[Rfam]
RNA sequence: GUACAGAUGAUGAUGACAUAACCGUAUGAGAUGACCUGUGAUACUGUAAACGCUUUCUGAUGUA
Dot-bracket structure: .((((......((.(.(....(.((((.............)))).).....).)))....))))
The record is a 64-nucleotide RNA from Aquarana catesbeiana, which matches "Small nucleolar RNA Z39" in Rfam. The family's consensus secondary structure was predicted with PFOLD. A search with the family's covariance model found it, with a score of 55 bits. Rfam links the family to the GO terms RNA processing and nucleolus. On this family, see Chen et al., Nucleic Acids Res 2003: "The high diversity of snoRNAs in plants: identification and comparative study of 120 snoRNA genes from Oryza sativa".